[Rfam]
RNA sequence: UGAGAAAAGCAGAAGUGAGAACUUCUCGCCUUGCGACUAAGGUUGUCUGGCCCAACAUGUCAAGAUUCCAUUAGGAAUAUUAUGAAUGUGUGCGGGCUUGAUUUAUCAGGUCCGCUUUCGUUUUUCUCU
Numbered sequence: 001u002g003a004g005a006a007a008a009g010c011a012g013a014a015g016u017g018a019g020a021a022c023u024u025c026u027c028g029c030c031u032u033g034c035g036a037c038u039a040a041g042g043u044u045g046u047c048u049g050g051c052c053c054a055a056c057a058u059g060u061c062a063a064g065a066u067u068c069c070a071u072u073a074g075g076a077a078u079a080u081u082a083u084g085a086a087u088g089u090g091u092g093c094g095g096g097c098u099u100g101a102u103u104u105a106u107c108a109g110g111u112c113c114g115c116u117u118u119c120g121u122u123u124u125u126c127u128c129u
Base pairs, nucleotide, nucleotide: 011026012025013024014023015022016021028051029050030049033046034045035044036043037042092115093114094113095112096111097110098109099108100107
The family of this 129-nucleotide RNA from Streptococcus henryi is "Ribosomal protein L20 leader". Lineage of the source: Bacteria > Bacillota > Bacilli > Streptococcaceae > Streptococcus. A search with the family's covariance model found it, with a score of 80 bits.